[Rfam]
RNA sequence: CUCGACAUGUCGGGGGCCAUAGAAGGAGCGUUCUCGUUGCGGUCCCUGUCAGGUAUUUCACCUGCGAAUCCUUCU
Numbered sequence: 001c002u003c004g005a006c007a008u009g010u011c012g013g014g015g016g017c018c019a020u021a022g023a024a025g026g027a028g029c030g031u032u033c034u035c036g037u038u039g040c041g042g043u044c045c046c047u048g049u050c051a052g053g054u055a056u057u058u059c060a061c062c063u064g065c066g067a068a069u070c071c072u073u074c075u
Stems, first nucleotide, its partner, number of pairs: 013046006021075007028040003050064005

A member of the RNA family "Mammalian CPEB3 ribozyme" from Patiria miniata, 75 nucleotides long. The family's consensus secondary structure is taken from published work. The source organism's lineage runs through Eukaryota, Opisthokonta, Echinodermata, Valvatida and Patiria.